[Rfam]
RNA sequence: CCACUUGAAGUGAGAGUUAGAUGGAACUGAACCACCUCCAAUCGACCACCUGUUGAUUUGGGUGUUGUUCAGUUUCCUCUAAUAUCUCACUUUGGAUGG
Number, nucleotide and partner (000 for none) at each position: 001c000002c000003a000004c000005u095006u094007g093008a092009a000010g000011u089012g088013a087014g086015a000016g083017u082018u081019a080020g079021a078022u000023g076024g075025a074026a073027c072028u071029g070030a069031a000032c067033c000034a000035c000036c000037u000038c000039c000040a000041a000042u000043c000044g000045a000046c000047c000048a000049c000050c000051u000052g000053u000054u000055g000056a000057u000058u000059u000060g000061g000062g000063u000064g000065u000066u000067g032068u000069u030070c029071a028072g027073u026074u025075u024076c023077c000078u021079c020080u019081a018082a017083u016084a000085u000086c014087u013088c012089a011090c000091u000092u008093u007094g006095g005096a000097u000098g000099g000
A member of the RNA family "MIR2275 microRNA precursor family" from Aegilops tauschii, 99 nucleotides long. The source organism's lineage runs through Eukaryota, Streptophytina, Liliopsida, Poales and Aegilops tauschii. Its family is annotated with miRNA-mediated post-transcriptional gene silencing and RISC complex in the Gene Ontology. Pairs were carried over by alignment from the consensus structure, which was predicted with RNAalifold.